A member of the RNA family "Vibrio RNA AS7" from Agromyces rhizosphaerae, 169 nucleotides long. Identified by direct cloning an parallel sequencing experiments with 5S/tRNA depletion. The family's consensus secondary structure was predicted with RNAfold. A search with the family's covariance model found it, with a score of 105 bits. The organism belongs to Agromyces, within Bacteria.

Nucleotides: 169
Base pairs, nucleotide, nucleotide: 001167002166003165004164005163006162008161011025013023014022015021032056035053038050040048061070062069076154077153080150084147086144087143088142092140093139095137096136099133101131102130104128105127107125110123111122112121113120114119
Number, partner (000 for none) and nucleotide at each position: 001167g002166g003165g004164g005163u006162c007000u008161g009000g010000a011025g012000c013023a014022g015021c016000a017000g018000g019000c020000g021015g022014c023013u024000u025011c026000g027000a028000u029000c030000g031000g032056u033000g034000a035053u036000c037000a038050c039000c040048c041000c042000g043000c044000c045000g046000a047000u048040g049000u050038g051000g052000u053035a054000c055000g056032g057000c058000a059000g060000c061070c062069c063000g064000c065000a066000g067000u068000u069062g070061g071000c072000g073000a074000a075000c076154g077153a078000c079000a080150c081000g082000u083000a084147g085000c086144c087143g088142c089000c090000a091000c092140g093139c094000u095137c096136g097000a098000a099133c100000a101131c102130g103000a104128u105127g106000a107125u108000c109000u110123c111122g112121g113120c114119g115000g116000u117000c118000u119114c120113g121112u122111c123110g124000a125107g126000c127105c128104g129000u130102c131101g132000g133099g134000c135000g136096c137095g138000c139093g140092c141000u142088g143087c144086g145000a146000c147084c148000g149000a150080g151000g152000c153077u154076c155000c156000a157000c158000c159000c160000g161008c162006g163005a164004c165003u166002c167001c168000a169000c